A member of the RNA family "c-di-GMP-I-GGC riboswitch aptamer" from Pseudodesulfovibrio sp. JC047, 75 nucleotides long. Taxonomically the source falls in Pseudodesulfovibrio (Bacteria, Pseudomonadati, Thermodesulfobacteriota, Desulfovibrionia). The family's consensus secondary structure is taken from published work. It scores 70 bits against the family's covariance model. On this family, see Smith et al., Nat Struct Mol Biol 2009: "Structural basis of ligand binding by a c-di-GMP riboswitch".
RNA sequence: CAAGACAAAGCCAAACCCGUUGUGAAACGGGGACGGAAAGCCACGGAUCUCAUCGAGACCGCCGGGUUGCCAAAG
Numbered sequence: 001c002a003a004g005a006c007a008a009a010g011c012c013a014a015a016c017c018c019g020u021u022g023u024g025a026a027a028c029g030g031g032g033a034c035g036g037a038a039a040g041c042c043a044c045g046g047a048u049c050u051c052a053u054c055g056a057g058a059c060c061g062c063c064g065g066g067u068u069g070c071c072a073a074a075g
Stems, first nucleotide, its partner, number of pairs: 001075001004071001011036002016031006034061001039068004044064003048058002